[Rfam]
Mammalian CPEB3 ribozyme: a 76-nucleotide RNA from Alligator mississippiensis. Lineage of the source: Eukaryota > Euteleostomi > Archosauria > Alligatoridae > Alligator.
RNA sequence: AGUAAAUCUUUGAGGCCAUCACAGAAGUGUUCACAGUGCAGCCAUGUCAGAUUCCAAAGAAACUGCAAAUUUUGCU
Numbered sequence: 001a002g003u004a005a006a007u008c009u010u011u012g013a014g015g016c017c018a019u020c021a022c023a024g025a026a027g028u029g030u031u032c033a034c035a036g037u038g039c040a041g042c043c044a045u046g047u048c049a050g051a052u053u054c055c056a057a058a059g060a061a062a063c064u065g066c067a068a069a070u071u072u073u074g075c076u
Stems, first nucleotide, its partner, number of pairs: 011044001014043003022074005027039003048065003052061003